[Rfam]
RNA sequence: GCUGAGCUCAGUAGCGUGGGCUUGUAACUCAAGUGAGGGCAUGAAAGUGAUGGGACGUUGUUUCGGCACAGGAGGUUGGGUUUGAUGUGGCUUCUUUACUGGCCUGCCCGUUCCAAGCCAGGAGCGAGCCAUGCUAACCAAGCGAAGGCCUGGUUGGCCCGUCUCCUGAAGUGAAGGGCACUGCGUGAGGCUGGUUUCACAGAGCAGCGAUCACCUUCCUCUCUUGGCAGUGGAAGGAUAACAGGCUGGUGCCAAUCAAAUCCGUAUGGCCUAAUGGGCUGUUCCAACUGGACCAUCAUUUUU
Numbered sequence: 001g002c003u004g005a006g007c008u009c010a011g012u013a014g015c016g017u018g019g020g021c022u023u024g025u026a027a028c029u030c031a032a033g034u035g036a037g038g039g040c041a042u043g044a045a046a047g048u049g050a051u052g053g054g055a056c057g058u059u060g061u062u063u064c065g066g067c068a069c070a071g072g073a074g075g076u077u078g079g080g081u082u083u084g085a086u087g088u089g090g091c092u093u094c095u096u097u098a099c100u101g102g103c104c105u106g107c108c109c110g111u112u113c114c115a116a117g118c119c120a121g122g123a124g125c126g127a128g129c130c131a132u133g134c135u136a137a138c139c140a141a142g143c144g145a146a147g148g149c150c151u152g153g154u155u156g157g158c159c160c161g162u163c164u165c166c167u168g169a170a171g172u173g174a175a176g177g178g179c180a181c182u183g184c185g186u187g188a189g190g191c192u193g194g195u196u197u198c199a200c201a202g203a204g205c206a207g208c209g210a211u212c213a214c215c216u217u218c219c220u221c222u223c224u225u226g227g228c229a230g231u232g233g234a235a236g237g238a239u240a241a242c243a244g245g246c247u248g249g250u251g252c253c254a255a256u257c258a259a260a261u262c263c264g265u266a267u268g269g270c271c272u273a274a275u276g277g278g279c280u281g282u283u284c285c286a287a288c289u290g291g292a293c294c295a296u297c298a299u300u301u302u303u
Base pairs, nucleotide, nucleotide: 001040002039003038004023005022006021007020008019009018010017028037029036030035043303044302045301046300047299048298049297050296051295052294053293056290057289058287059286060285063281065279069276070275073272074271075270076269077268078263079262080261081260082259083258084257085256086255088254089253090252092251099249100248101247102246103245104244105243106242108237109236111235112234113233114232115231117228118227119226120225121224122223123222124221126165127164128163130161133158134157135156136155137154138153139152140151142149143148166171173218174217175216176215177214184209185208186207191202192201193200

Overview:
A member of the RNA family "Plant signal recognition particle RNA" from Populus deltoides, 303 nucleotides long. Lineage of the source: Eukaryota > Viridiplantae > Embryophyta > Magnoliopsida > Populus. A search with the family's covariance model found it, with a score of 247 bits.